[Rfam]
RNA sequence: CCAGAUAGCCAUUGUCUCCUACGGUAAAGAGAAACCCGCAGUACUGGGUCACGACGAAGCGGCUUACGCUAAAAACCGUCGUGCGGUACUGGUCUACUAAGAGAACGGCAUGAGCAGUAACUUCAGACAAUCUCUGAUG
Numbered sequence: 001c002c003a004g005a006u007a008g009c010c011a012u013u014g015u016c017u018c019c020u021a022c023g024g025u026a027a028a029g030a031g032a033a034a035c036c037c038g039c040a041g042u043a044c045u046g047g048g049u050c051a052c053g054a055c056g057a058a059g060c061g062g063c064u065u066a067c068g069c070u071a072a073a074a075a076c077c078g079u080c081g082u083g084c085g086g087u088a089c090u091g092g093u094c095u096a097c098u099a100a101g102a103g104a105a106c107g108g109c110a111u112g113a114g115c116a117g118u119a120a121c122u123u124c125a126g127a128c129a130a131u132c133u134c135u136g137a138u139g
Stems, first nucleotide, its partner, number of pairs: 001047004014035002017032002020029001054138001057135001059133001065127001068124001075118002078115001079113006086106002089103002
Annotation
CpoB/ybgF ICR thermometer: a 139-nucleotide sequence from Jejuibacter calystegiae. From the family's description: Imprinting control region from upstream of cpoB/ybgF (tol/pal system protein). Rfam links the family to the GO terms response to temperature stimulus and regulation of translation. A reference for the family is Righetti et al. (2016), "Temperature-responsive in vitro RNA structurome of Yersinia pseudotuberculosis", Proc Natl Acad Sci U S A.